Shown here is a 77-nucleotide sequence from Erpetoichthys calabaricus, a member of the family "Small nucleolar RNA SNORD83". It scores 65 bits against the family's covariance model.
RNA sequence: GCCACAUGAUGAUUAUGUACAUUCACGAGCACUCUGUGCCAAGAUGACUUUCUAUCUAUCACCCUUGACUGAUGGCU
Numbered sequence: 001g002c003c004a005c006a007u008g009a010u011g012a013u014u015a016u017g018u019a020c021a022u023u024c025a026c027g028a029g030c031a032c033u034c035u036g037u038g039c040c041a042a043g044a045u046g047a048c049u050u051u052c053u054a055u056c057u058a059u060c061a062c063c064c065u066u067g068a069c070u071g072a073u074g075g076c077u
Base pairs, nucleotide, nucleotide: 001076002075003074004073029039030038031037032036